[Rfam]
RNA sequence: CCUUGGCCCGGUUCAAGUAAUCCAGGAUAGGCUGUUUUCCACCAGUGCGGCCUAUUCUCGAUUACUUGUUCCAGGAGGAGG
Numbered sequence: 001c002c003u004u005g006g007c008c009c010g011g012u013u014c015a016a017g018u019a020a021u022c023c024a025g026g027a028u029a030g031g032c033u034g035u036u037u038u039c040c041a042c043c044a045g046u047g048c049g050g051c052c053u054a055u056u057c058u059c060g061a062u063u064a065c066u067u068g069u070u071c072c073a074g075g076a077g078g079a080g081g
Stems, first nucleotide, its partner, number of pairs: 002080003007075002010072002014068009024058010
The record is an 81-nucleotide RNA from Clupea harengus, which matches "mir-26 microRNA precursor family" in Rfam. It scores 87 bits against the family's covariance model. Gene Ontology terms of the family: miRNA-mediated post-transcriptional gene silencing and RISC complex.